Description
Rfam assigns this 308-nucleotide sequence from Musa troglodytarum to the family "Plant signal recognition particle RNA". Clan: SRP clan. Taxonomically the source falls in Musa (Eukaryota, Streptophytina, Embryophyta, Zingiberales). The family has 63 seed sequences and 4,988 matches in Rfam 15.1. Pairs were carried over by alignment from the consensus structure, which is taken from published work.
Nucleotides: 308
Stems, first nucleotide, its partner, number of pairs: 001040003004023005028037003045306006052300002056296002059292002061289003065285002070283001072281001074279006081268002084265005090260002093257001102253007110242002113240005119233006126227003130170002132167002136163008145154003171176001179222004189214003196207003
Number, partner (000 for none) and nucleotide at each position: 001040g002039c003038c004023g005022a006021g007020c008019c009000c010000a011000g012000u013000a014000g015000c016000g017000c018000a019008g020007g021006c022005u023004u024000g025000u026000g027000a028037c029036u030035c031000g032000a033000g034000c035030g036029g037028g038003g039002g040001c041000a042000a043000u044000c045306g046305g047304g048303u049302a050301g051000u052300g053299g054000g055000a056296u057295g058000g059292c060291g061289u062288g063287u064000u065285g066284g067000g068000c069000u070283u071000c072281c073000a074279g075278u076277g077276g078275g079274u080000u081268g082267g083000a084265u085264g086263u087262g088261g089000u090260c091259g092000c093257a094000c095000a096000a097000u098000c099000a100000u101000u102253c103252g104251g105250c106249u107248u108247g109000c110242c111241c112000g113240u114239u115238c116237c117236a118000a119233g120232u121231c122230a123229a124228g125000c126227a127226g128225u129000u130170g131169a132167c133166c134000a135000u136163u137162g138161u139160g140159a141158u142157c143156u144000g145154g146153g147152c148000g149000a150000a151000g152147g153146c154145c155000g156143g157142g158141a159140u160139u161138a162137c163136a164000u165000g166133g167132g168000a169131u170130u171176c172000u173000a174000a175000a176171g177000u178000u179222g180221a181220g182219g183000a184000c185000a186000u187000c188000g189214c190213g191212u192000c193000a194000g195000g196207c197206u198205g199000g200000c201000u202000u203000c204000a205198c206197a207196g208000a209000g210000c211000a212191a213190c214189g215000a216000u217000c218000a219182c220181c221180u222179c223000u224000c225128g226127c227126u228124c229123u230122u231121g232120a233119c234000g235000g236117u237116g238115g239114a240113a241111g242110g243000a244000u245000a246000a247108c248107a249106a250105g251104c252103u253102g254000u255000c256000g257093u258000a259091c260090g261088c262087c263086g264085c265084a266000c267082c268081c269000a270000u271000c272000a273000u274079g275078c276077c277076c278075a279074c280000c281072g282000a283070g284066c285065c286000u287063a288062c289061a290000c291060u292059g293000a294000c295057c296056a297000a298000a299053c300052c301050c302049u303048g304047c305046c306045c307000c308000u